The family of this 54-nucleotide RNA from Bagarius yarrelli is "UnaL2 LINE 3' element". Pairs were carried over by alignment from the consensus structure, which is taken from published work. A search with the family's covariance model found it, with a score of 63 bits.

RNA sequence: AAAAGAGAUAAAUGUAAGUCGCUCUGGAUAAGAGUGUCUGCCAAAUGCCAUAAA
Numbered sequence: 001a002a003a004a005g006a007g008a009u010a011a012a013u014g015u016a017a018g019u020c021g022c023u024c025u026g027g028a029u030a031a032g033a034g035u036g037u038c039u040g041c042c043a044a045a046u047g048c049c050a051u052a053a054a
Base pairs, nucleotide, nucleotide: 013043014041015040016039020036021035022034023033024032025031